[Rfam]
RNA sequence: GGUCAAAGCAGACCUAAAAUGCUGGAAUGUUACUAGUCUAGAGUCAUAGCGACGACUUAAAAAGCUUA
Dot-bracket structure: ((((..[[[[)))).....]]]]..................((((........))))...........
Numbered sequence: 001g002g003u004c005a006a007a008g009c010a011g012a013c014c015u016a017a018a019a020u021g022c023u024g025g026a027a028u029g030u031u032a033c034u035a036g037u038c039u040a041g042a043g044u045c046a047u048a049g050c051g052a053c054g055a056c057u058u059a060a061a062a063a064g065c066u067u068a
Stems, first nucleotide, its partner, number of pairs: 001014004007023004042057004